The family of this 88-nucleotide RNA sequence from Vagococcus coleopterorum is "BsrC".
The match comes from Rfam's covariance-model search (64 bits).
Rfam describes the family as follows. The 301 nucleotide sequence from Kouji Nakamura has been trimmed to a highly conserved ~85 nucleotide long core to form this family.
Rfam 15.1 lists 572 matches to the family in 553 species.

[Rfam]
RNA sequence: UCUCAUUUAAACGAUCCAACCCCUACCAUCUGUUGCAUCCUUGCAGCCCUAUAGCUGCGCCAGUGUGAAUAAACUUCUUAAAAAUCAA
Number, nucleotide and partner (000 for none) at each position: 001u000002c000003u000004c000005a000006u000007u000008u000009a000010a000011a000012c000013g000014a000015u000016c000017c000018a000019a000020c000021c000022c000023c000024u000025a000026c000027c000028a000029u000030c000031u000032g000033u000034u000035g000036c067037a066038u000039c000040c063041u062042u059043g058044c057045a056046g055047c054048c000049c000050u000051a000052u000053a000054g047055c046056u045057g044058c043059g042060c000061c000062a041063g040064u000065g000066u037067g036068a000069a000070u000071a000072a000073a000074c000075u000076u000077c000078u000079u000080a000081a000082a000083a000084a000085u000086c000087a000088a000